[Rfam]
Nucleotides: 102
Stems, first nucleotide, its partner, number of pairs: 001102001003100006013042005021031003026081003043074004048070002050067001052065001078094001084090001
Number, partner (000 for none) and nucleotide at each position: 001102u002000g003100c004099u005098u006097a007096u008095c009000u010000a011000g012000a013042g014041u015040g016039g017038u018000g019000g020000a021031g022030g023029g024000a025000a026081a027080g028079g029023c030022c031021c032000u033000g034000c035000g036000a037000a038017g039016c040015c041014a042013c043074a044073g045072c046071a047000a048070c049069c050067g051000g052065c053000c054000c055000a056000g057000a058000a059000a060000u061000g062000g063000g064000c065052g066000a067050c068000a069049g070048g071046u072045g073044c074043u075000a076000a077000a078094u079028c080027c081026u082000g083000c084090c085000g086000a087000a088000a089000g090084g091000c092000g093000a094078a095008g096007a097006u098005g099004a100003g101000a102001a

Shown here is a 102-nucleotide RNA sequence from Citrifermentans bemidjiense, a member of the family "SAM riboswitch aptamer (S box leader)".
Rfam's curators put it in the seed alignment.
The organism belongs to Citrifermentans bemidjiense, within Bacteria.